About this RNA: This 114-nucleotide sequence from Adineta steineri belongs to the Rfam family "Potassium channel RNA editing signal".

RNA sequence: GUUGGUUACGGAGAUUAUGUACCACGUACAACAUUAGGUAAGGUUAUUGGUGCAGCAUGUGCAAUAACGGGUGUAUUAACAAUUGCAUUACCAGUACCUAUAAUUGUAUCUAAU
Numbered sequence: 001g002u003u004g005g006u007u008a009c010g011g012a013g014a015u016u017a018u019g020u021a022c023c024a025c026g027u028a029c030a031a032c033a034u035u036a037g038g039u040a041a042g043g044u045u046a047u048u049g050g051u052g053c054a055g056c057a058u059g060u061g062c063a064a065u066a067a068c069g070g071g072u073g074u075a076u077u078a079a080c081a082a083u084u085g086c087a088u089u090a091c092c093a094g095u096a097c098c099u100a101u102a103a104u105u106g107u108a109u110c111u112a113a114u
Base pairs, nucleotide, nucleotide: 001114002113004111005110007108008107009106010105011104014101015100017099019097020096021095022094037077038076039075040074050062051061
The base pairs follow the family's consensus structure, which is taken from published work. Rfam classes the family as a cis-regulatory element.